[Rfam]
RNA sequence: GGUAGGAGGUCAGAGAUGCGUCUUGGAAUUCAGCCUUGCUUUUUGCUUGGUGUUUUUUCCAAGUUUGCAGGCCAACGUCGGUUUUGGGCACUGGAGAAGGGUGGAAGGAACGUGGCACCCCUCGGGGUGUGUUAUAGCCUUCCACUGGAUACAGCGACCGAGACCGAGGACAGCAGCGUACUCGCAAGAGCGGGCCCUCGGGCACCUUUACGCUUAGGGCGUUGGCAUAAUGGCCCUCUACCACCCGUCUUGAAACACGG
Numbered sequence: 001g002g003u004a005g006g007a008g009g010u011c012a013g014a015g016a017u018g019c020g021u022c023u024u025g026g027a028a029u030u031c032a033g034c035c036u037u038g039c040u041u042u043u044u045g046c047u048u049g050g051u052g053u054u055u056u057u058u059c060c061a062a063g064u065u066u067g068c069a070g071g072c073c074a075a076c077g078u079c080g081g082u083u084u085u086g087g088g089c090a091c092u093g094g095a096g097a098a099g100g101g102u103g104g105a106a107g108g109a110a111c112g113u114g115g116c117a118c119c120c121c122u123c124g125g126g127g128u129g130u131g132u133u134a135u136a137g138c139c140u141u142c143c144a145c146u147g148g149a150u151a152c153a154g155c156g157a158c159c160g161a162g163a164c165c166g167a168g169g170a171c172a173g174c175a176g177c178g179u180a181c182u183c184g185c186a187a188g189a190g191c192g193g194g195c196c197c198u199c200g201g202g203c204a205c206c207u208u209u210a211c212g213c214u215u216a217g218g219g220c221g222u223u224g225g226c227a228u229a230a231u232g233g234c235c236c237u238c239u240a241c242c243a244c245c246c247g248u249c250u251u252g253a254a255a256c257a258c259g260g
Stems, first nucleotide, its partner, number of pairs: 001242006008235005017069004023063001073224007245260004
Dot-bracket structure: ((((((.(((((....((((..(.......................................)..))))...(((((((..........................................................................................................................................)))))))......))))).))))))..((((........))))

Overview: Rfam assigns this 260-nucleotide part of an RNA from Sporisorium reilianum to the family "Eukaryotic large subunit ribosomal RNA". The source organism's lineage runs through Eukaryota, Opisthokonta, Dikarya, Ustilaginomycotina and Sporisorium reilianum. It is one of the family's seed sequences. The family's consensus secondary structure is taken from published work.